[Rfam]
RNA: Nuclear RNase P
Organism: Rattus norvegicus
RNA sequence: AAAAAUGUAAACUUGGGGCGGGGCCACGCGCUGAGUGCUCGUCACUCCAUCGGCCUCUGAGAAGGUCUGAGACUGGGGCCUCCCGAGGCCCUAACCGGGCUCUCCCCGAGAGGGGAGGUGAGUUCCCAGAGAGCAGGGCUCCACGCGUGGGCAAAAAAAGAGAAAAAAAUGUAAACCUGAAGAGGAGCUUCAUAGCUUCAUAGCUUCAGCUAUGACAGCGUGUUUCAUUUCUUCCCAGCGUGCUCCUGGGUUAUACAGUACUUCUUGU
Numbered sequence: 001a002a003a004a005a006u007g008u009a010a011a012c013u014u015g016g017g018g019c020g021g022g023g024c025c026a027c028g029c030g031c032u033g034a035g036u037g038c039u040c041g042u043c044a045c046u047c048c049a050u051c052g053g054c055c056u057c058u059g060a061g062a063a064g065g066u067c068u069g070a071g072a073c074u075g076g077g078g079c080c081u082c083c084c085g086a087g088g089c090c091c092u093a094a095c096c097g098g099g100c101u102c103u104c105c106c107c108g109a110g111a112g113g114g115g116a117g118g119u120g121a122g123u124u125c126c127c128a129g130a131g132a133g134c135a136g137g138g139c140u141c142c143a144c145g146c147g148u149g150g151g152c153a154a155a156a157a158a159a160g161a162g163a164a165a166a167a168a169a170u171g172u173a174a175a176c177c178u179g180a181a182g183a184g185g186a187g188c189u190u191c192a193u194a195g196c197u198u199c200a201u202a203g204c205u206u207c208a209g210c211u212a213u214g215a216c217a218g219c220g221u222g223u224u225u226c227a228u229u230u231c232u233u234c235c236c237a238g239c240g241u242g243c244u245c246c247u248g249g250g251u252u253a254u255a256c257a258g259u260a261c262u263u264c265u266u267g268u
Stems, first nucleotide, its partner, number of pairs: 001268001003266002007261003015228001017226002020057004033047005067258003071254001077205003087101005102117006118201005124195001138188003234250005